[Rfam]
Background
A member of the RNA family "BsrG" from Aquibacillus salsiterrae, 277 nucleotides long. For this family Rfam cites "One antitoxin--two functions: SR4 controls toxin mRNA decay and translation" (Jahn and Brantl, Nucleic Acids Res, 2013). NCBI's taxonomy places the organism under Bacteria, Bacillati, Bacillota, Bacilli, Aquibacillus. The family's consensus secondary structure was predicted with WAR. The match comes from Rfam's covariance-model search (56 bits). Rfam describes the family as follows. bsrE, bsrG and bsrH pair through intermolecular interactions with antisense sRNAs. They form type I toxin/antitoxin system that includes an mRNA encoding for a short, toxic peptide (bsrE, bsrG and bsrH) and an antitoxin that is comprised of an antisense RNA. bsrG encodes a 39-amino-acid toxin, and the 180 nucleotide antisense sRNA called SR4 acts as the antitoxin (they overlap by 123 nucleotides).
RNA sequence: UAAUUACAUAGCAGGUGGGCGGUUGGCCAUCUUCCUUAUAGAAGGGAGGUGGUAGGAUGACGACAUAUGAAGCAUUAAGCCUAGUAGCACAAUUUUGUUUAACAUUAUUAGCUACUCUAACACUUAUUGUAACUAUUGUCGUAUAUCUAAACAAAAAGAAGUAACCGUCCCACUGACUAAUGUAAACGGCUACUUCUUUUGAAUUAUCACCAAUACUUUGGUCAACCGCUCUUUAUGCGGCCUGUAGUUACAUUACCGGGUGGUUACAGCCACUCGG
Numbered sequence: 001u002a003a004u005u006a007c008a009u010a011g012c013a014g015g016u017g018g019g020c021g022g023u024u025g026g027c028c029a030u031c032u033u034c035c036u037u038a039u040a041g042a043a044g045g046g047a048g049g050u051g052g053u054a055g056g057a058u059g060a061c062g063a064c065a066u067a068u069g070a071a072g073c074a075u076u077a078a079g080c081c082u083a084g085u086a087g088c089a090c091a092a093u094u095u096u097g098u099u100u101a102a103c104a105u106u107a108u109u110a111g112c113u114a115c116u117c118u119a120a121c122a123c124u125u126a127u128u129g130u131a132a133c134u135a136u137u138g139u140c141g142u143a144u145a146u147c148u149a150a151a152c153a154a155a156a157a158g159a160a161g162u163a164a165c166c167g168u169c170c171c172a173c174u175g176a177c178u179a180a181u182g183u184a185a186a187c188g189g190c191u192a193c194u195u196c197u198u199u200u201g202a203a204u205u206a207u208c209a210c211c212a213a214u215a216c217u218u219u220g221g222u223c224a225a226c227c228g229c230u231c232u233u234u235a236u237g238c239g240g241c242c243u244g245u246a247g248u249u250a251c252a253u254u255a256c257c258g259g260g261u262g263g264u265u266a267c268a269g270c271c272a273c274u275c276g277g
Base pairs, nucleotide, nucleotide: 001250002249003248004247005246007244008243011241014174015173016172017171018170019169021166022165023164024163027052028051029050031049032048033047034046035045059140060139061138062137063136065134072088073087074085098131226240227239228238229237256277257276258275259274260273261272262271263270264269